[Rfam]
RNA: chrB-b RNA
Nucleotides: 046
Stems, first nucleotide, its partner, number of pairs: 002019005009046005024036005
Number, partner (000 for none) and nucleotide at each position: 001000a002019g003018g004017g005016g006015a007000a008000u009046g010045c011044a012043g013042a014000c015006u016005c017004c018003c019002c020000g021000u022000u023000a024036g025035a026034c027033g028032g029000u030000c031000g032028c033027c034026g035025u036024c037000c038000a039000a040000g041000c042013u043012c044011u045010g046009c